[Rfam]
Nucleotides: 107
Base pairs, nucleotide, nucleotide: 002107005103006102007101008100009099010098012096013095014094015093016092017091018090019089022086023085024084025083026082027081028080029079030078
Number, partner (000 for none) and nucleotide at each position: 001000a002107a003000u004000u005103u006102u007101c008100u009099g010098a011000c012096a013095a014094c015093c016092a017091u018090u019089u020000c021000a022086c023085a024084u025083u026082g027081c028080a029079c030078u031000a032000c033000u034000a035000g036000g037000u038000g039000u040000a041000c042000a043000a044000a045000c046000u047000a048000c049000u050000g051000u052000u053000u054000g055000a056000a057000c058000a059000a060000a061000c062000u063000g064000u065000u066000u067000g068000a069000a070000u071000a072000c073000c074000u075000a076000a077000u078030a079029g080028u081027g082026c083025a084024a085023u086022g087000u088000g089019a090018a091017a092016u093015g094014g095013u096012u097000g098010u099009c100008a101007g102006a103005a104000a105000a106000u107002u